[Rfam]
RNA: DUF3800-VIII RNA
RNA sequence: AAAGCCCUGCAAGCUGCGAAGUCCCAAGUUCCACUUGGGAUACGAAACUAAAGAAAUUUUCAUAGCAGCUGUGGGGUUUU
Numbered sequence: 001a002a003a004g005c006c007c008u009g010c011a012a013g014c015u016g017c018g019a020a021g022u023c024c025c026a027a028g029u030u031c032c033a034c035u036u037g038g039g040a041u042a043c044g045a046a047a048c049u050a051a052a053g054a055a056a057u058u059u060u061c062a063u064a065g066c067a068g069c070u071g072u073g074g075g076g077u078u079u080u
Stems, first nucleotide, its partner, number of pairs: 001080010012070006021041009